[Rfam]
RNA: MIR8024 microRNA precursor family
RNA sequence: UUGGAGGAUUUGAAGAAUUCACCUUGUAUACUUGGAGGAUUUGAAAACUUCAACUUGUAUACUUGGAGGAUUUGAAGACUUCAAUU
Numbered sequence: 001u002u003g004g005a006g007g008a009u010u011u012g013a014a015g016a017a018u019u020c021a022c023c024u025u026g027u028a029u030a031c032u033u034g035g036a037g038g039a040u041u042u043g044a045a046a047a048c049u050u051c052a053a054c055u056u057g058u059a060u061a062c063u064u065g066g067a068g069g070a071u072u073u074g075a076a077g078a079c080u081u082c083a084a085u086u
Stems, first nucleotide, its partner, number of pairs: 001084006009076006018067004025059004032053006